[Rfam]
RNA sequence: GGGGUUGUGGCGUAACCUGGCAGCGCAGCUGGCUCCAGAUGUUUAUACUGUGUUGAGCCUUAUGGCGAUGAUGAGGAUCUGGAAAAACAAUAAAAUAUGAAGUAACCAGCUGGUCCGGGUUCAAAUCCCGGCAACCCCA
Number, nucleotide and partner (000 for none) at each position: 001g138002g137003g136004g135005u134006u133007g132008u000009g000010g026011c025012g024013u023014a000015a000016c000017c000018u000019g000020g000021c000022a000023g013024c012025g011026c010027a000028g110029c109030u108031g107032g106033c000034u000035c000036c000037a000038g000039a000040u000041g000042u000043u000044u000045a000046u000047a000048c000049u000050g000051u000052g000053u000054u000055g000056a000057g000058c000059c000060u000061u000062a000063u000064g000065g000066c000067g000068a000069u000070g000071a000072u000073g000074a000075g000076g000077a000078u000079c000080u000081g000082g000083a000084a000085a000086a000087a000088c000089a000090a000091u000092a000093a000094a000095a000096u000097a000098u000099g000100a000101a000102g000103u000104a000105a000106c032107c031108a030109g029110c028111u000112g000113g000114u000115c131116c130117g129118g128119g127120u000121u000122c000123a000124a000125a000126u000127c119128c118129c117130g116131g115132c007133a006134a005135c004136c003137c002138c001139a000

Rfam assigns this 139-nucleotide sequence from Candidatus Micrarchaeum acidiphilum to the family "tRNA". Gene Ontology term of the family: triplet codon-amino acid adaptor activity.